[Rfam]
RNA: c-di-GMP-I riboswitch aptamer
Organism: Ruminococcus difficilis
RNA sequence: UAGAUUUAAAAGCAAAGCUGUCGAAAGGCAGUGACGCAAAGCGAAGAGCCUAAGGUGCUUAUGCAUUAUGGUCGUCUGGUUGCAUCU
Numbered sequence: 001u002a003g004a005u006u007u008a009a010a011a012g013c014a015a016a017g018c019u020g021u022c023g024a025a026a027g028g029c030a031g032u033g034a035c036g037c038a039a040a041g042c043g044a045a046g047a048g049c050c051u052a053a054g055g056u057g058c059u060u061a062u063g064c065a066u067u068a069u070g071g072u073c074g075u076c077u078g079g080u081u082g083c084a085u086c087u
Base pairs, nucleotide, nucleotide: 012037013036017032018031019030020029021028022027040081041080042079045077046076047075048072049071050070055066056065057064058063